[Rfam]
The family of this 73-nucleotide RNA sequence from Alligator sinensis is "Mammalian CPEB3 ribozyme". A search with the family's covariance model found it, with a score of 37 bits. Taxonomically the source falls in Alligator (Eukaryota, Deuterostomia, Craniata, Sarcopterygii).
RNA sequence: UUGCCAUAAUAUCCAUAGCAGAAGUGCUCAUGUCGAGGCCCUGUCAGAUUCUACUGAAUCUCAAAAUUCUGCU
Numbered sequence: 001u002u003g004c005c006a007u008a009a010u011a012u013c014c015a016u017a018g019c020a021g022a023a024g025u026g027c028u029c030a031u032g033u034c035g036a037g038g039c040c041c042u043g044u045c046a047g048a049u050u051c052u053a054c055u056g057a058a059u060c061u062c063a064a065a066a067u068u069c070u071g072c073u
Stems, first nucleotide, its partner, number of pairs: 013038002017073007025035002046061006